[Rfam]
RNA sequence: ACAACGGCUCUUUUAAGAGCCACCCACCAAAAAACUAAGAGCCUAU
Numbered sequence: 001a002c003a004a005c006g007g008c009u010c011u012u013u014u015a016a017g018a019g020c021c022a023c024c025c026a027c028c029a030a031a032a033a034a035c036u037a038a039g040a041g042c043c044u045a046u
Base pairs, nucleotide, nucleotide: 006021007020008019009018010017011016
The record is a 46-nucleotide sequence from Neogobius melanostomus, which matches "Histone 3' UTR stem-loop" in Rfam. Rfam links the family to the GO term mRNA 3'-end processing by stem-loop binding and cleavage. The organism belongs to Neogobius, within Eukaryota. The family's consensus secondary structure is taken from published work. Rfam classes the family as a cis-regulatory element.